[Rfam]
A member of the RNA family "Bacterial large signal recognition particle RNA" from Clostridium baratii, 265 nucleotides long. The base pairs follow the family's consensus structure, which is taken from published work. A search with the family's covariance model found it, with a score of 224 bits. Clan: SRP clan.
RNA sequence: CCGUGCUAGAUGGGGAGUUAGCGGUGCCCUGUAACCUGCAAUCCGCUACAGCAGGAUCGAAUUCCUCGGGGAGGCUUUAGUUUGUAUGGCCUGCCCUAUGUAAGUGGUGUUGAUGGCUGGGUCCCACGCAACGGGAGCCCAUGAACCUUGUCAGAUCCGGAAGGAAGCAGCAAUAAGUGGUUCCUUCCGUGUGCCGUGGAUCAAUCUGGCCUGAGCUAACUGCAUAGGUAACGCAUAUAAACUACUGUCGAAGCGGGGUGCACGG
Numbered sequence: 001c002c003g004u005g006c007u008a009g010a011u012g013g014g015g016a017g018u019u020a021g022c023g024g025u026g027c028c029c030u031g032u033a034a035c036c037u038g039c040a041a042u043c044c045g046c047u048a049c050a051g052c053a054g055g056a057u058c059g060a061a062u063u064c065c066u067c068g069g070g071g072a073g074g075c076u077u078u079a080g081u082u083u084g085u086a087u088g089g090c091c092u093g094c095c096c097u098a099u100g101u102a103a104g105u106g107g108u109g110u111u112g113a114u115g116g117c118u119g120g121g122u123c124c125c126a127c128g129c130a131a132c133g134g135g136a137g138c139c140c141a142u143g144a145a146c147c148u149u150g151u152c153a154g155a156u157c158c159g160g161a162a163g164g165a166a167g168c169a170g171c172a173a174u175a176a177g178u179g180g181u182u183c184c185u186u187c188c189g190u191g192u193g194c195c196g197u198g199g200a201u202c203a204a205u206c207u208g209g210c211c212u213g214a215g216c217u218a219a220c221u222g223c224a225u226a227g228g229u230a231a232c233g234c235a236u237a238u239a240a241a242c243u244a245c246u247g248u249c250g251a252a253g254c255g256g257g258g259u260g261c262a263c264g265g
Stems, first nucleotide, its partner, number of pairs: 001265006009058003012030004017025003035055005064258005073249003079243010092230002096227006104220002106217003115211008124199005129191002132189005137182001139180004148173004156165003